[Rfam]
Nucleotides: 091
Stems, first nucleotide, its partner, number of pairs: 026085008038072003042068004046063004
Number, partner (000 for none) and nucleotide at each position: 001000u002000g003000g004000c005000u006000g007000u008000a009000g010000c011000u012000a013000a014000a015000u016000u017000a018000a019000a020000c021000a022000c023000g024000c025000c026085g027084a028083g029082g030081a031080g032079u033078u034000u035000a036000c037000u038072g039071g040070c041000c042068g043067g044066u045065u046063g047062u048061u049060g050000u051000g052000a053000u054000a055000g056000c057000u058000a059000u060049c061048g062047a063046c064000u065045g066044a067043u068042c069000u070040g071039c072038u073000u074000a075000c076000c077000g078033a079032a080031c081030u082029u083028c084027u085026c086000a087000c088000a089000a090000u091000u
A member of the RNA family "Small nucleolar RNA snoR109" from Cannabis sativa, 91 nucleotides long. By type it is an H/ACA-box small nucleolar RNA. For this family Rfam cites "Experimental RNomics: identification of 140 candidates for small non-messenger RNAs in the plant Arabidopsis thaliana" (Marker et al., Curr Biol, 2002). It scores 85 bits against the family's covariance model.